Shown here is a 265-nucleotide RNA from Candidatus Cryosericum terrychapinii, a member of the family "Bacterial large signal recognition particle RNA".
Gene Ontology terms of the family: signal recognition particle, plasma membrane targeting and SRP-dependent cotranslational protein targeting to membrane, signal sequence recognition.
Rfam's curators write: The signal recognition particle (SRP) is a universally conserved ribonucleoprotein involved in the co-translational targeting of proteins to membranes.
The family's consensus secondary structure is taken from published work.
[Rfam]
RNA sequence: CCGUACAGGACGGGGAGCUAGCGGUGCCCUGUUGCCCGGAAUCCGCUCACCGGGGUCCAUGCUGGGCAUGCGGGACGCACAUUUCCGAAACAGUCCCCGUUAAAGGCGUUGAAGGCUGCACACCAUGCAAUGGGAAGCUCUGAACUCUGCCAGGUCCGGAAGGAAGCAACAGUACUGAGUAGAACAUGUGCCGUGGCCCGAUGCAACUGGAGCCGGAGACAGUCGACCACGCCGGGGGUACGCGCAACAAGUGCUCAGCGUACGG
Numbered sequence: 001c002c003g004u005a006c007a008g009g010a011c012g013g014g015g016a017g018c019u020a021g022c023g024g025u026g027c028c029c030u031g032u033u034g035c036c037c038g039g040a041a042u043c044c045g046c047u048c049a050c051c052g053g054g055g056u057c058c059a060u061g062c063u064g065g066g067c068a069u070g071c072g073g074g075a076c077g078c079a080c081a082u083u084u085c086c087g088a089a090a091c092a093g094u095c096c097c098c099g100u101u102a103a104a105g106g107c108g109u110u111g112a113a114g115g116c117u118g119c120a121c122a123c124c125a126u127g128c129a130a131u132g133g134g135a136a137g138c139u140c141u142g143a144a145c146u147c148u149g150c151c152a153g154g155u156c157c158g159g160a161a162g163g164a165a166g167c168a169a170c171a172g173u174a175c176u177g178a179g180u181a182g183a184a185c186a187u188g189u190g191c192c193g194u195g196g197c198c199c200g201a202u203g204c205a206a207c208u209g210g211a212g213c214c215g216g217a218g219a220c221a222g223u224c225g226a227c228c229a230c231g232c233c234g235g236g237g238g239u240a241c242g243c244g245c246a247a248c249a250a251g252u253g254c255u256c257a258g259c260g261u262a263c264g265g
Base pairs, nucleotide, nucleotide: 001265002264003263004262005261006260008058009057010056011055012030013029014028015027017025018024019023035054036053037052038051039050062258063257064256065255066254067253068252072248076244078242081239082238083237084236085235086234087233093227094226097222099220100219105214106213107212114208115207117205118204119203120202123196124195125194126193127192128188129187131186132185137180138179139178140177142175147172148171149170155164156163157162